[Rfam]
RNA sequence: GCAGCGCUGGGCGUUCGCGCUCAGCGAGGAUCGCAAA
Numbered sequence: 001g002c003a004g005c006g007c008u009g010g011g012c013g014u015u016c017g018c019g020c021u022c023a024g025c026g027a028g029g030a031u032c033g034c035a036a037a
Stems, first nucleotide, its partner, number of pairs: 005026009
RNA: CRISPR RNA direct repeat element
Organism: Nocardia sp. NRRL S-836